[Rfam]
RNA: Small nucleolar RNA SNORD126
Organism: Sus scrofa
RNA sequence: AGUUUGCCAGAGUGAAAGAAAGGCCUGUUAAGUCCAUAUUUUGGCUGAUCACCCUGAUUCAACAUAUGCUCUAUGCAGACU
Numbered sequence: 001a002g003u004u005u006g007c008c009a010g011a012g013u014g015a016a017a018g019a020a021a022g023g024c025c026u027g028u029u030a031a032g033u034c035c036a037u038a039u040u041u042u043g044g045c046u047g048a049u050c051a052c053c054c055u056g057a058u059u060c061a062a063c064a065u066a067u068g069c070u071c072u073a074u075g076c077a078g079a080c081u
Stems, first nucleotide, its partner, number of pairs: 001081007